[Rfam]
RNA sequence: CGGCGAGGACGACCUCCCCCAAACGGGAACAAAGUCGGGACGACCCGA
Numbered sequence: 001c002g003g004c005g006a007g008g009a010c011g012a013c014c015u016c017c018c019c020c021a022a023a024c025g026g027g028a029a030c031a032a033a034g035u036c037g038g039g040a041c042g043a044c045c046c047g048a
Stems, first nucleotide, its partner, number of pairs: 002019002005016004035048005
Description: Shown here is a 48-nucleotide sequence from Sulfitobacter brevis, a member of the family "Guanidine-II riboswitch aptamer (mini-ykkC)". NCBI's taxonomy places the organism under Bacteria, Pseudomonadati, Pseudomonadota, Rhodobacterales, Sulfitobacter. Rfam describes the family as follows. Simpler in structure and has fewer highly conserved nucleotide positions than the ykkC-yxkD leader. Despite this each of its two stem-loop structures directly bind free guanidine. A search with the family's covariance model found it, with a score of 38 bits. Pairs were carried over by alignment from the consensus structure, which is taken from published work.